[Rfam]
MIR1144 microRNA precursor family: a 192-nucleotide RNA from Chlamydomonas reinhardtii. The base pairs follow the family's consensus structure, which was predicted with RNAalifold. Rfam links the family to the GO terms miRNA-mediated post-transcriptional gene silencing and RISC complex.
RNA sequence: GUGCAGCAGGCUUGGCACCGGGCACGCAGGAGGUGGGUAGUGUUGCGGCAGGCAGCAGGCAGCGCGGGGCUGCUGCUGGUGGAGGAGGAGGACGGGCGCCUGUCCUCUUCCACCAACAGCACCAGCCCCGCGCUGCCUGCUACCUCCACCACACUACCCACCCCCUGCAUGCCCGGUACCAAGCCUGUACCC
Numbered sequence: 001g002u003g004c005a006g007c008a009g010g011c012u013u014g015g016c017a018c019c020g021g022g023c024a025c026g027c028a029g030g031a032g033g034u035g036g037g038u039a040g041u042g043u044u045g046c047g048g049c050a051g052g053c054a055g056c057a058g059g060c061a062g063c064g065c066g067g068g069g070c071u072g073c074u075g076c077u078g079g080u081g082g083a084g085g086a087g088g089a090g091g092a093c094g095g096g097c098g099c100c101u102g103u104c105c106u107c108u109u110c111c112a113c114c115a116a117c118a119g120c121a122c123c124a125g126c127c128c129c130g131c132g133c134u135g136c137c138u139g140c141u142a143c144c145u146c147c148a149c150c151a152c153a154c155u156a157c158c159c160a161c162c163c164c165c166u167g168c169a170u171g172c173c174c175g176g177u178a179c180c181a182a183g184c185c186u187g188u189a190c191c192c
Base pairs, nucleotide, nucleotide: 001190002189004187005186012182013181018176019175020174021173022172023171024170026168032162033161034160037157038156040154041153048147051144052143054141055140056139058137059136060135063132064131065130066129067128068127069126070125071124075123077121078120080119082117084113087108090105091104092103093102

It scores 146 bits against the family's covariance model. Taxonomically the source falls in Chlamydomonas (Eukaryota, Chlorophyta, core chlorophytes, Chlamydomonadaceae).